[Rfam]
RNA sequence: CGCUUAUGGAGAAAGGCAGAGGGAAUGGACCCUGUGAAGCCUUAGCAACCUGUCACCAGACAAGGUGCUAAAUUCUACCCGUCGGCAGGCGGGAAAAAUAAGCA
Dot-bracket structure: .((((((.....(((((...(((..[[[[)))......)))))((((.((((((....)))).))))))...(]]]]((((((....))))))..).)))))).
Rfam assigns this 104-nucleotide RNA sequence from Parapedobacter composti to the family "SAM riboswitch aptamer (S box leader)". It scores 79 bits against the family's covariance model. Lineage of the source: Bacteria > Pseudomonadati > Sphingobacteriia > Sphingobacteriaceae > Parapedobacter.